[Rfam]
RNA: small nucleolar RNA snR35
RNA sequence: UCUGUGCGGCGAUUACCCUACAACUUGCGUGUUACUCGCAGGCUAUUUUUUCAUGGGCUUGUUUGAGUGUCAAACCAGGUUAAGAGAUAGGUAGAAUGUCUUAACGCCCUAUUCUGAUCGCUUGUUUUAUAUCACAGGCAGUUAGAGGGCUGGUGAUUCUUAUAUUU
Number, nucleotide and partner (000 for none) at each position: 001u000002c000003u000004g000005u000006g000007c000008g000009g000010c000011g000012a000013u000014u000015a000016c000017c000018c000019u000020a000021c000022a081023a080024c079025u078026u077027g076028c000029g000030u000031g000032u000033u000034a068035c067036u066037c065038g064039c000040a000041g000042g058043c057044u056045a000046u000047u000048u000049u000050u000051u000052c000053a000054u000055g000056g044057g043058c042059u000060u000061g000062u000063u000064u038065g037066a036067g035068u034069g000070u000071c000072a000073a000074a000075c000076c027077a026078g025079g024080u023081u022082a000083a000084g000085a000086g000087a000088u000089a000090g000091g000092u000093a160094g159095a158096a157097u156098g000099u000100c000101u000102u000103a000104a000105c000106g000107c000108c000109c000110u148111a000112u147113u146114c145115u144116g143117a142118u000119c000120g139121c138122u000123u136124g135125u000126u000127u000128u000129a000130u000131a000132u000133c000134a000135c124136a123137g000138g121139c120140a000141g000142u117143u116144a115145g114146a113147g112148g110149g000150c000151u000152g000153g000154u000155g000156a097157u096158u095159c094160u093161u000162a000163u000164a000165u000166u000167u000